[Rfam]
RNA: Small nucleolar RNA snoR136
RNA sequence: GAGGCUUCACAUCAGUACUUCAUAAAAGCUAAAUCUAAGUUGAUUAGCUUAUGCUUAUGUUAGUGAAGCCUAAAUAAAUUGUUCCCCUCGCUAUCCAGAGCGGCGUUCUGUGUUGCAUUUGGACGUCGGGGAACUACAUUC
Numbered sequence: 001g002a003g004g005c006u007u008c009a010c011a012u013c014a015g016u017a018c019u020u021c022a023u024a025a026a027a028g029c030u031a032a033a034u035c036u037a038a039g040u041u042g043a044u045u046a047g048c049u050u051a052u053g054c055u056u057a058u059g060u061u062a063g064u065g066a067a068g069c070c071u072a073a074a075u076a077a078a079u080u081g082u083u084c085c086c087c088u089c090g091c092u093a094u095c096c097a098g099a100g101c102g103g104c105g106u107u108c109u110g111u112g113u114u115g116c117a118u119u120u121g122g123a124c125g126u127c128g129g130g131g132a133a134c135u136a137c138a139u140u141c
Base pairs, nucleotide, nucleotide: 003070004069005068008065009064010063015056018053026050027049028048029047030046031045032044034043035042081134082133083132084131085130086129087128089125090124094123095122096121097120098119103113104112105111